[Rfam]
RNA sequence: GCAGGUGAAUGCAACGUCAAGCGAUGGGCGUUGCGCUCCAUAUUGUCUUACUUCCUUUUUUGAAUUACUGCAUAGCACAAUUGAUUCACACCACGCCGACAGUUUUGUCGGCUUUU
Numbered sequence: 001g002c003a004g005g006u007g008a009a010u011g012c013a014a015c016g017u018c019a020a021g022c023g024a025u026g027g028g029c030g031u032u033g034c035g036c037u038c039c040a041u042a043u044u045g046u047c048u049u050a051c052u053u054c055c056u057u058u059u060u061u062g063a064a065u066u067a068c069u070g071c072a073u074a075g076c077a078c079a080a081u082u083g084a085u086u087c088a089c090a091c092c093a094c095g096c097c098g099a100c101a102g103u104u105u106u107g108u109c110g111g112c113u114u115u116u
Stems, first nucleotide, its partner, number of pairs: 001046004007038002010035009062087006069077003095112007
Rfam assigns this 116-nucleotide sequence from Pectobacterium atrosepticum to the family "Fumarate/nitrate reductase regulator sRNA". For this family Rfam cites "Translational regulation of gene expression by an anaerobically induced small non-coding RNA in Escherichia coli" (Boysen et al., J Biol Chem, 2010). Rfam's curators put it in the seed alignment. Pairs were carried over by alignment from the consensus structure, which is taken from published work. NCBI's taxonomy places the organism under Bacteria, Pseudomonadati, Enterobacterales, Pectobacterium, Pectobacterium atrosepticum. It is annotated as a small RNA.